[Rfam]
Source information: Shown here is a 76-nucleotide RNA sequence from Actinoallomurus iriomotensis, a member of the family "6C RNA". It scores 58 bits against the family's covariance model. Gene Ontology term of the family: sporulation. Pairs were carried over by alignment from the consensus structure, which is taken from published work.

Nucleotides: 076
Stems, first nucleotide, its partner, number of pairs: 004033002007030007038072013
Number, partner (000 for none) and nucleotide at each position: 001000a002000c003000g004033g005032g006000a007030c008029c009028g010027g011026c012025u013024c014000u015000a016000c017000c018000c019000c020000c021000c022000c023000a024013g025012a026011g027010c028009c029008g030007g031000a032005c033004c034000g035000u036000a037000c038072g039071g040070c041069g042068a043067c044066c045065c046064c047063c048062g049061c050060u051000c052000u053000c054000c055000c056000c057000c058000c059000c060050g061049g062048c063047g064046g065045g066044g067043g068042u069041c070040g071039c072038c073000u074000c075000g076000u